Rfam assigns this 265-nucleotide sequence from Shouchella lonarensis to the family "BsrG". By type it is a small RNA. Its family is annotated with autolysis and toxin activity in the Gene Ontology. On this family, see Saito et al., Gene 2008: "Novel small RNA-encoding genes in the intergenic regions of Bacillus subtilis". NCBI's taxonomy places the organism under Bacteria, Bacillati, Bacillota, Bacilli, Shouchella. bsrE, bsrG and bsrH pair through intermolecular interactions with antisense sRNAs. They form type I toxin/antitoxin system that includes an mRNA encoding for a short, toxic peptide (bsrE, bsrG and bsrH) and an antitoxin that is comprised of an antisense RNA. bsrG encodes a 39-amino-acid toxin, and the 180 nucleotide antisense sRNA called SR4 acts as the antitoxin (they overlap by 123 nucleotides). SR4 interaction with the 3'UTR of bsrG RNA promotes bsrG degradation and inhibits its translation. Pairs were carried over by alignment from the consensus structure, which was predicted with WAR.
[Rfam]
RNA sequence: AGCUGAAUCACUCAUGUGCGGGCUUGGCACACCUUCUAAGAGAGGAGGUGAUGCCGGAUGUCGGUUUACGAAGCAUUGUCUCUGACAGUUGCAACGAACGUAUUGUUGUUGUCACUGUUUACUGUGGUGCUUGUGCUGACAAAGCGCAACGAAAAAUAGCCCUCUCAUGAGUGUCGUGCCAGACGCGAGAGGACUAUCCUUGUAGUAUUUGGCCAAGCCCGAAAAGGGGUUCAGCGAACACCGUCUAAAGCUUUCGCUUUAGACG
Numbered sequence: 001a002g003c004u005g006a007a008u009c010a011c012u013c014a015u016g017u018g019c020g021g022g023c024u025u026g027g028c029a030c031a032c033c034u035u036c037u038a039a040g041a042g043a044g045g046a047g048g049u050g051a052u053g054c055c056g057g058a059u060g061u062c063g064g065u066u067u068a069c070g071a072a073g074c075a076u077u078g079u080c081u082c083u084g085a086c087a088g089u090u091g092c093a094a095c096g097a098a099c100g101u102a103u104u105g106u107u108g109u110u111g112u113c114a115c116u117g118u119u120u121a122c123u124g125u126g127g128u129g130c131u132u133g134u135g136c137u138g139a140c141a142a143a144g145c146g147c148a149a150c151g152a153a154a155a156a157u158a159g160c161c162c163u164c165u166c167a168u169g170a171g172u173g174u175c176g177u178g179c180c181a182g183a184c185g186c187g188a189g190a191g192g193a194c195u196a197u198c199c200u201u202g203u204a205g206u207a208u209u210u211g212g213c214c215a216a217g218c219c220c221g222a223a224a225a226g227g228g229g230u231u232c233a234g235c236g237a238a239c240a241c242c243g244u245c246u247a248a249a250g251c252u253u254u255c256g257c258u259u260u261a262g263a264c265g
Stems, first nucleotide, its partner, number of pairs: 002235004007230001008212002011171006018164001021161004030050002033048005060140006073118003181201002218228003242265010
Dot-bracket structure: .((((.(((.((((((.(..((((.....((.(((((......))))))).........((((((.......(((........................................)))................)))))).................))))..).)))))).........((.................)).........)).....(((.....))).).))))......((((((((((....))))))))))